The record is a 105-nucleotide sequence from Cynara cardunculus, which matches "Small nucleolar RNA Z279/snoR105/snoR108" in Rfam. The family's consensus secondary structure was predicted with PFOLD. About the family: This family includes the plant snoRNAs known as Z279, snoR105 and snoR108.
[Rfam]
RNA sequence: GGGAAUUGAUGAGUGGUCAUCGCUCGCAUUUAAAUAUGCGAGAAGGGGUGUGCGCCUAAAGCCUUACGACAAUUGGCCACCUCCGAUCUUUAACCAUCUGAUCCC
Numbered sequence: 001g002g003g004a005a006u007u008g009a010u011g012a013g014u015g016g017u018c019a020u021c022g023c024u025c026g027c028a029u030u031u032a033a034a035u036a037u038g039c040g041a042g043a044a045g046g047g048g049u050g051u052g053c054g055c056c057u058a059a060a061g062c063c064u065u066a067c068g069a070c071a072a073u074u075g076g077c078c079a080c081c082u083c084c085g086a087u088c089u090u091u092a093a094c095c096a097u098c099u100g101a102u103c104c105c
Stems, first nucleotide, its partner, number of pairs: 001105004014096004023042005045083005050077002063075001064072001

For this family Rfam cites "Experimental RNomics: identification of 140 candidates for small non-messenger RNAs in the plant Arabidopsis thaliana" (Marker et al., Curr Biol, 2002).
The organism belongs to Cynara cardunculus subsp. cardunculus, within Eukaryota.
The family is grouped with related families in Rfam's "snoU13 clan".